[Rfam]
RNA sequence: AACUUUUCUCGAGCUUUCGCUCAGAUCAAGUGUAGUAUCUGUUCUAUUAUGUUUAAACACAUAAUGAGGCUUUCUUAAGCCUUCAUUAGUUUAACCGAAUUUCUUCAGAGGGCGUUAUUCAAACAGGCUUGUUUACAAGUCGAAUACGCGAGCAUGUUCUUGGCCUUGCACUUUGCCUCGAACGUGUACCUCGA
Numbered sequence: 001a002a003c004u005u006u007u008c009u010c011g012a013g014c015u016u017u018c019g020c021u022c023a024g025a026u027c028a029a030g031u032g033u034a035g036u037a038u039c040u041g042u043u044c045u046a047u048u049a050u051g052u053u054u055a056a057a058c059a060c061a062u063a064a065u066g067a068g069g070c071u072u073u074c075u076u077a078a079g080c081c082u083u084c085a086u087u088a089g090u091u092u093a094a095c096c097g098a099a100u101u102u103c104u105u106c107a108g109a110g111g112g113c114g115u116u117a118u119u120c121a122a123a124c125a126g127g128c129u130u131g132u133u134u135a136c137a138a139g140u141c142g143a144a145u146a147c148g149c150g151a152g153c154a155u156g157u158u159c160u161u162g163g164c165c166u167u168g169c170a171c172u173u174u175g176c177c178u179c180g181a182a183c184g185u186g187u188a189c190c191u192c193g194a
Base pairs, nucleotide, nucleotide: 007025008024009023011022012021013020014019046065047064048063049062050061051060067082068081069080070079071078072077112149113148114147115146117145118144119143120142128139129138130137131136152187153186154185155184156183157182159180162177163176164175
RNA: U2 spliceosomal RNA
Organism: Ostreococcus sp. 'lucimarinus'